[Rfam]
RNA sequence: AGGCGAUGCUUAUGUAUCUCCUCAGCCUGAACAGACCCUGGAUAUUGGCAGGUUCUCGUACAAUCCUUAUCGGUAAAACUCAUG
Numbered sequence: 001a002g003g004c005g006a007u008g009c010u011u012a013u014g015u016a017u018c019u020c021c022u023c024a025g026c027c028u029g030a031a032c033a034g035a036c037c038c039u040g041g042a043u044a045u046u047g048g049c050a051g052g053u054u055c056u057c058g059u060a061c062a063a064u065c066c067u068u069a070u071c072g073g074u075a076a077a078a079c080u081c082a083u084g
Stems, first nucleotide, its partner, number of pairs: 002020002005018005024054006033045001035043001037041001

This 84-nucleotide sequence from Legionella pneumophila belongs to the Rfam family "Legionella RNA 69". The source organism's lineage runs through Bacteria, Legionellales, Legionellaceae, Legionella and Legionella pneumophila subsp. pneumophila. For this family Rfam cites "Sequencing illustrates the transcriptional response of Legionella pneumophila during infection and identifies seventy novel small non-coding RNAs" (Weissenmayer et al., PLoS One, 2011). Rfam describes the family as follows. Identified by strand specific sequencing of the transcriptional response during broth growth and during infection inside the host. Infection specific expression.